[Rfam]
RNA sequence: CGGGACAUGAUUCAUGAUUCGCAUCGUUCGUUUCGCUGGUCUACUACUACUAAACGCAUCCUCAGUGCGCGGUAGACUGGUGCGCGACGUUCAGCGGUAACGCUUGAGUCAGGUCAUCAGAAAUAAAAAACCCGCGCCGCUGCGCGGGUUUUUUU
Numbered sequence: 001c002g003g004g005a006c007a008u009g010a011u012u013c014a015u016g017a018u019u020c021g022c023a024u025c026g027u028u029c030g031u032u033u034c035g036c037u038g039g040u041c042u043a044c045u046a047c048u049a050c051u052a053a054a055c056g057c058a059u060c061c062u063c064a065g066u067g068c069g070c071g072g073u074a075g076a077c078u079g080g081u082g083c084g085c086g087a088c089g090u091u092c093a094g095c096g097g098u099a100a101c102g103c104u105u106g107a108g109u110c111a112g113g114u115c116a117u118c119a120g121a122a123a124u125a126a127a128a129a130a131c132c133c134g135c136g137c138c139g140c141u142g143c144g145c146g147g148g149u150u151u152u153u154u155u
Stems, first nucleotide, its partner, number of pairs: 004115001006113001008111003013106002016103001024087004029082004047075005055069004127152011
Rfam assigns this 155-nucleotide sequence from Cronobacter sakazakii to the family "Leucine operon leader".
Its family is annotated with leucine biosynthetic process in the Gene Ontology.
The source organism's lineage runs through Bacteria, Pseudomonadati, Gammaproteobacteria, Cronobacter and Cronobacter sakazakii.
At least 6 amino acid operons are known to be regulated by attenuation. In each a leader sequence of 150-200 bp is found upstream of the first gene in the operon. This leader sequence can assume two different secondary structures known as the terminator and the anti-terminator structure.
The base pairs follow the family's consensus structure, which is taken from published work.